[Rfam]
RNA sequence: ACUGAGGAAUGAUGACAUUAAAAGGCCGAAUUGCAGUGCCUUCCAUAAGCAGUUUGCUCUCUGUAUGGAGCACAAUGACAAAGUCUCCAGAAGCGUACAACUAGUCUGACCUCAGU
Numbered sequence: 001a002c003u004g005a006g007g008a009a010u011g012a013u014g015a016c017a018u019u020a021a022a023a024g025g026c027c028g029a030a031u032u033g034c035a036g037u038g039c040c041u042u043c044c045a046u047a048a049g050c051a052g053u054u055u056g057c058u059c060u061c062u063g064u065a066u067g068g069a070g071c072a073c074a075a076u077g078a079c080a081a082a083g084u085c086u087c088c089a090g091a092a093g094c095g096u097a098c099a100a101c102u103a104g105u106c107u108g109a110c111c112u113c114a115g116u
Stems, first nucleotide, its partner, number of pairs: 001116007014106003025034002035102003043095001044093001046091001049088001052073002055070001057068002075086001077084001
Rfam assigns this 116-nucleotide RNA from Monodelphis domestica to the family "Small nucleolar RNA SNORD89". The family's RNA type in Rfam is C/D-box small nucleolar RNA. snoRNA HBII-289 belongs to the family of C/D snoRNAs. It is the human orthologue of the mouse MBII-289 and has no identified RNA target. It scores 93 bits against the family's covariance model. The literature on the family includes a 2001 paper in EMBO J by Huttenhofer et al., "RNomics: an experimental approach that identifies 201 candidates for novel, small, non-messenger RNAs in mouse". The family has 18 seed sequences and 642 matches in Rfam 15.1.